[Rfam]
RNA sequence: GCGGGCGUGAACUCACUCAGCCUGGGUGUGAUGCUAGCCCCUCCGAAGGGCCCAAGAGGUCAUCACAACCUUUUUGAGUGAGCGAACGCCCCC
Numbered sequence: 001g002c003g004g005g006c007g008u009g010a011a012c013u014c015a016c017u018c019a020g021c022c023u024g025g026g027u028g029u030g031a032u033g034c035u036a037g038c039c040c041c042u043c044c045g046a047a048g049g050g051c052c053c054a055a056g057a058g059g060u061c062a063u064c065a066c067a068a069c070c071u072u073u074u075u076g077a078g079u080g081a082g083c084g085a086a087c088g089c090c091c092c093c
Stems, first nucleotide, its partner, number of pairs: 008085001012082009024070002027067007
Overview:
Rfam assigns this 93-nucleotide RNA from Cephus cinctus to the family "mir-67 microRNA precursor family". The family's consensus secondary structure was predicted with RNAalifold. The organism belongs to Cephus, within Eukaryota. The literature on the family includes a 2008 paper in Insect Biochem Mol Biol by Cao et al., "Identification of conserved microRNAs in Bombyx mori (silkworm) and regulation of fibroin L chain production by microRNAs in heterologous system". It scores 59 bits against the family's covariance model.